This 119-nucleotide RNA sequence from Glycine soja belongs to the Rfam family "MIR1520 microRNA precursor family". Lineage of the source: Eukaryota > Embryophyta > Euphyllophyta > Pentapetalae > Glycine subgen. Soja. Gene Ontology terms of the family: RISC complex and miRNA-mediated post-transcriptional gene silencing.
RNA sequence: AUGUUGUUGAUUAACAGUGUCACAUGUCAUGAUCUGAUUGACCAAUGAUAACAAUAAUGAAUUUCAUCUUUCAUGAAAUUCACAUCUAAUCAGAUCAUGACAUGUCACAGUCAUCAUCC
Numbered sequence: 001a002u003g004u005u006g007u008u009g010a011u012u013a014a015c016a017g018u019g020u021c022a023c024a025u026g027u028c029a030u031g032a033u034c035u036g037a038u039u040g041a042c043c044a045a046u047g048a049u050a051a052c053a054a055u056a057a058u059g060a061a062u063u064u065c066a067u068c069u070u071u072c073a074u075g076a077a078a079u080u081c082a083c084a085u086c087u088a089a090u091c092a093g094a095u096c097a098u099g100a101c102a103u104g105u106c107a108c109a110g111u112c113a114u115c116a117u118c119c
Base pairs, nucleotide, nucleotide: 019108020107022105024103025102028099029098030097032095033094034093035092037090038089039088
The family has 18 seed sequences and 1,934 matches in Rfam 15.1.